Source information
Shown here is a 72-nucleotide sequence from Kryptolebias marmoratus, a member of the family "mir-551 microRNA precursor family". Pairs were carried over by alignment from the consensus structure, which was predicted with RNAalifold.
[Rfam]
RNA sequence: UGCUCUUAGAAACCAAGAGUGGGUGCAGCCUGAUGAAGAAACUUGGCGACCCAUCCUUAGUUUCUGAGGUCU
Numbered sequence: 001u002g003c004u005c006u007u008a009g010a011a012a013c014c015a016a017g018a019g020u021g022g023g024u025g026c027a028g029c030c031u032g033a034u035g036a037a038g039a040a041a042c043u044u045g046g047c048g049a050c051c052c053a054u055c056c057u058u059a060g061u062u063u064c065u066g067a068g069g070u071c072u
Base pairs, nucleotide, nucleotide: 002071004069005068006067007066009064010063011062012061013060016057017056021052022051023050024049028047029046030045
Annotation:
It scores 54 bits against the family's covariance model. Rfam 15.1 lists 1,097 matches to the family in 627 species. Its family is annotated with RISC complex and miRNA-mediated post-transcriptional gene silencing in the Gene Ontology.